[Rfam]
RNA: Nitrogen regulated small RNA
Organism: Pseudomonas fulva
RNA sequence: AACCCAGUUUCGGGGACCUUGGUACAGGCAGGCCGGGGAAUCCCCUUCUUUCUUUGGGAGCCUCGGUACAGGCAGGCCGGGACCUCCCUUCUUUCUUCGGGGACUCUGAUACAGGCAGAUCAGAUAAUCCCCCUUUUCUUCGGGAGCCCUGGUACAGGCAGGCCGGGAACUCCCUCUUUUCUUCCUAACGC
Dot-bracket structure: ...........((((((((((((........)))))))..)))))..........(((((.((((((........))))))..)))))..........(((((..((((..........))))....))))).........(((.(.((((((........))))))...).)))................